[Rfam]
This 83-nucleotide RNA from Desulfitobacterium metallireducens belongs to the Rfam family "c-di-GMP-I riboswitch aptamer". Pairs were carried over by alignment from the consensus structure, which is taken from published work. A search with the family's covariance model found it, with a score of 81 bits. Rfam links the family to the GO term cyclic-di-GMP binding.

RNA sequence: CAAAGAAAAAGGCAAACCCGUUGAAAAGCGGGGACGCAAAGCGAUGGGUCUAAGGCUUUUGCUAAGACUGCCAAGCUGCCAUA
Numbered sequence: 001c002a003a004a005g006a007a008a009a010a011g012g013c014a015a016a017c018c019c020g021u022u023g024a025a026a027a028g029c030g031g032g033g034a035c036g037c038a039a040a041g042c043g044a045u046g047g048g049u050c051u052a053a054g055g056c057u058u059u060u061g062c063u064a065a066g067a068c069u070g071c072c073a074a075g076c077u078g079c080c081a082u083a
Stems, first nucleotide, its partner, number of pairs: 012037002017032006040077003045073003048068003055062002